[Rfam]
RNA sequence: UCUCCAUUUCGCACACUCUCUCGCCGAUCAGAGGCGCGAGAGAGAGUGUGUGAGAUGAAGAGA
Numbered sequence: 001u002c003u004c005c006a007u008u009u010c011g012c013a014c015a016c017u018c019u020c021u022c023g024c025c026g027a028u029c030a031g032a033g034g035c036g037c038g039a040g041a042g043a044g045a046g047u048g049u050g051u052g053a054g055a056u057g058a059a060g061a062g063a
Base pairs, nucleotide, nucleotide: 001061002060003059005057006056007055010052012050013049014048015047016046017045019043020042021041022040